[Rfam]
A member of the RNA family "Makes More Granules Regulator RNA (mmgR)" from Sphingobium algorifonticola, 75 nucleotides long.
Pairs were carried over by alignment from the consensus structure.
Its family is annotated with DNA-templated transcription, termination, protein binding and response to nitrogen compound in the Gene Ontology.
SuhB later renamed mmgR (makes more granules regulator) was a putative non-coding RNA found multiple times in the Agrobacterium tumefaciens genome and related alpha-proteobacteria. Other non-coding RNAs uncovered in the same analysis include: speF, ybhL, metA, and serC.Several studies inSinorhizobium meliloti showed that suhB element is indeed a non-coding RNA:firstly it was detected on Northern blot and called Sm8RNA, secondly in an RNAseq study referred to as SmelC689.The mutant phenotype's (strain lacking the small RNA) cytoplasm contains higher content of polyhydroxybutyrate (PBH)storage granules than wild type strain. The sRNA is required to limit the PBH intracellular accumulation when the nitrogen-fixing Sinorhizobium meliloti is under condition of surplus carbon in relation to nitrogen. It has been renamed to mmgR. Further study confirmed that mmgR fine-tunes the regulation of PBH storage.Northern blot confirmed the expression of the sRNA in other rhizobia species.
The literature on the family includes a 2005 paper in Genome Biol by Corbino et al., "Evidence for a second class of S-adenosylmethionine riboswitches and other regulatory RNA motifs in alpha-proteobacteria".
RNA sequence: CAAUCGGGCCUUUCAGGCAUCCUCUCCUAAAACUUUUCAGGCCGUCCCUCGGGGCGGCCUUUUUUUGCGUCGUGC
Number, nucleotide and partner (000 for none) at each position: 001c000002a000003a000004u000005c000006g000007g000008g018009c017010c016011u015012u000013u000014c000015a011016g010017g009018c008019a000020u000021c000022c000023u000024c000025u000026c000027c000028u000029a000030a000031a000032a000033c000034u000035u000036u000037u000038c000039a060040g059041g058042c057043c056044g055045u054046c053047c052048c000049u000050c000051g000052g047053g046054g045055c044056g043057g042058c041059c040060u039061u000062u000063u000064u000065u000066u000067g000068c000069g000070u000071c000072g000073u000074g000075c000